[Rfam]
Description
The record is an 83-nucleotide sequence from Papaver somniferum, which matches "Small nucleolar RNA R11/Z151" in Rfam. A search with the family's covariance model found it, with a score of 66 bits. On this family, see Barneche et al., J Mol Biol 2001: "Identification of 66 box C/D snoRNAs in Arabidopsis thaliana: extensive gene duplications generated multiple isoforms predicting new ribosomal RNA 2'-O-methylation sites". NCBI's taxonomy places the organism under Eukaryota, Tracheophyta, Euphyllophyta, Ranunculales, Papaver. The family's RNA type in Rfam is C/D-box small nucleolar RNA.
RNA sequence: UGGCUAAUGAUGAUAAAUUUUAUAUCUUAGCGGAUUUCAGUGAGAAUUUAUGUACGAUCUGAAUGUUACACACACAGAAGCCU
Number, nucleotide and partner (000 for none) at each position: 001u000002g082003g081004c080005u079006a000007a000008u000009g000010a000011u000012g000013a000014u000015a000016a000017a000018u000019u000020u000021u000022a000023u000024a000025u000026c000027u000028u000029a000030g000031c000032g000033g000034a000035u000036u000037u000038c000039a000040g000041u000042g000043a000044g000045a000046a000047u000048u000049u000050a000051u000052g000053u000054a000055c000056g000057a000058u000059c000060u000061g000062a000063a000064u000065g000066u000067u000068a000069c000070a000071c000072a000073c000074a000075c000076a000077g000078a000079a005080g004081c003082c002083u000